This 75-nucleotide RNA from Haemonchus placei belongs to the Rfam family "mir-5928 microRNA precursor family". Rfam links the family to the GO terms RISC complex and miRNA-mediated post-transcriptional gene silencing.

RNA sequence: AGCCCAAAUUUGAAGUAGAGUAGAUGAAUAGGAUCAGCCGGUCCUACUCCUCUACCCUACUUCGCAUUCGGGUCC
Numbered sequence: 001a002g003c004c005c006a007a008a009u010u011u012g013a014a015g016u017a018g019a020g021u022a023g024a025u026g027a028a029u030a031g032g033a034u035c036a037g038c039c040g041g042u043c044c045u046a047c048u049c050c051u052c053u054a055c056c057c058u059a060c061u062u063c064g065c066a067u068u069c070g071g072g073u074c075c
Stems, first nucleotide, its partner, number of pairs: 002073004007068003011064008020055004026049002029046002032043004

NCBI's taxonomy places the organism under Eukaryota, Bilateria, Nematoda, Rhabditina, Haemonchus. It scores 64 bits against the family's covariance model. The family has 5 seed sequences and 1,672 matches in Rfam 15.1.